[Rfam]
RNA sequence: AUUUGCCGUUAUAAAGAUAACAUCUGAAUUUAGUCAGGACCGGAAGGUAGCAGCUAUAAGGAAAAGUGUCUUGUAUAACGGUUAUUUUUU
Numbered sequence: 001a002u003u004u005g006c007c008g009u010u011a012u013a014a015a016g017a018u019a020a021c022a023u024c025u026g027a028a029u030u031u032a033g034u035c036a037g038g039a040c041c042g043g044a045a046g047g048u049a050g051c052a053g054c055u056a057u058a059a060g061g062a063a064a065a066g067u068g069u070c071u072u073g074u075a076u077a078a079c080g081g082u083u084a085u086u087u088u089u090u
Stems, first nucleotide, its partner, number of pairs: 001087001004084001006081006012073001014072006023061003031056004039048003
RNA: Bacterial small signal recognition particle RNA